[Rfam]
This 76-nucleotide sequence from Paractinoplanes rishiriensis belongs to the Rfam family "c-di-GMP-I-GGC riboswitch aptamer". It scores 62 bits against the family's covariance model. Lineage of the source: Bacteria > Bacillati > Actinomycetota > Micromonosporales > Paractinoplanes.
RNA sequence: GUCGAUAAGAGCAAACCCGGCGCAAGCCGGGGACGCAAAGCCAACGGGGCCCUAAGGGCCGGCCGGGUUACCGAAC
Number, nucleotide and partner (000 for none) at each position: 001g076002u000003c073004g072005a000006u000007a000008a000009g000010a000011g036012c035013a000014a000015a000016c031017c030018c029019g028020g027021c026022g000023c000024a000025a000026g021027c020028c019029g018030g017031g016032g000033a000034c062035g012036c011037a000038a000039a069040g068041c067042c066043a000044a000045c065046g064047g063048g060049g059050c058051c000052c000053u000054a000055a000056g000057g000058g050059c049060c048061g000062g034063c047064c046065g045066g042067g041068u040069u039070a000071c000072c004073g003074a000075a000076c001